[Rfam]
RNA sequence: UCACGGCUUAGUUAGGAGGCAUAAACUAAUUCCGACCCCCAGAGUUUCUCUGCGGUCUUCUUCCGAGGCCUUCUUACUGGGGACUCUCUGUUCUUUCUCUCCCAAUUGUUCCCCAAGAAGCCUCAAGACAUAU
Numbered sequence: 001u002c003a004c005g006g007c008u009u010a011g012u013u014a015g016g017a018g019g020c021a022u023a024a025a026c027u028a029a030u031u032c033c034g035a036c037c038c039c040c041a042g043a044g045u046u047u048c049u050c051u052g053c054g055g056u057c058u059u060c061u062u063c064c065g066a067g068g069c070c071u072u073c074u075u076a077c078u079g080g081g082g083a084c085u086c087u088c089u090g091u092u093c094u095u096u097c098u099c100u101c102c103c104a105a106u107u108g109u110u111c112c113c114c115a116a117g118a119a120g121c122c123u124c125a126a127g128a129c130a131u132a133u
Stems, first nucleotide, its partner, number of pairs: 005020001007018003034057004042050003063127001065124005073117003079113006087105001

Rfam assigns this 133-nucleotide RNA from Rhododendron williamsianum to the family "Small nucleolar RNA U19". Taxonomically the source falls in Rhododendron (Eukaryota, Euphyllophyta, Spermatophyta, Gunneridae). It scores 54 bits against the family's covariance model. The family has 3 seed sequences and 421 matches in Rfam 15.1. By type it is an H/ACA-box small nucleolar RNA. A reference for the family is Marker et al. (2002), "Experimental RNomics: identification of 140 candidates for small non-messenger RNAs in the plant Arabidopsis thaliana", Curr Biol.